[Rfam]
RNA sequence: ACAUUCACAGUGCCCUUCGGCUUAGCUGAGGCAUAGCUCCUCUUCGGUUUAAUCGCUGGAGAUGCUUUUUUCAGUCUUUGGAAACCGUUCUUGGGCCGCUGGGCUUGCUUACGUCCAGGAGCACCGUGUCGCUCGUAUUGCACUGCCUCGGGCCGACGCGAACUUUU
Numbered sequence: 001a002c003a004u005u006c007a008c009a010g011u012g013c014c015c016u017u018c019g020g021c022u023u024a025g026c027u028g029a030g031g032c033a034u035a036g037c038u039c040c041u042c043u044u045c046g047g048u049u050u051a052a053u054c055g056c057u058g059g060a061g062a063u064g065c066u067u068u069u070u071u072c073a074g075u076c077u078u079u080g081g082a083a084a085c086c087g088u089u090c091u092u093g094g095g096c097c098g099c100u101g102g103g104c105u106u107g108c109u110u111a112c113g114u115c116c117a118g119g120a121g122c123a124c125c126g127u128g129u130c131g132c133u134c135g136u137a138u139u140g141c142a143c144u145g146c147c148u149c150g151g152g153c154c155g156a157c158g159c160g161a162a163c164u165u166u167u
Stems, first nucleotide, its partner, number of pairs: 008025001012021003042061006087122008100111004125160006131153005
A member of the RNA family "U2 spliceosomal RNA" from Lophium mytilinum, 167 nucleotides long. It scores 47 bits against the family's covariance model. About the family: U2 is a small nuclear RNA (snRNA) component of the spliceosome (involved in pre-mRNA splicing). Gene Ontology terms of the family: U2 snRNP, mRNA branch site recognition and pre-mRNA branch point binding. It is annotated as a spliceosomal small nuclear RNA. Pairs were carried over by alignment from the consensus structure, which is taken from published work. The source organism's lineage runs through Eukaryota, Opisthokonta, Dikarya, Mytilinidiaceae and Lophium.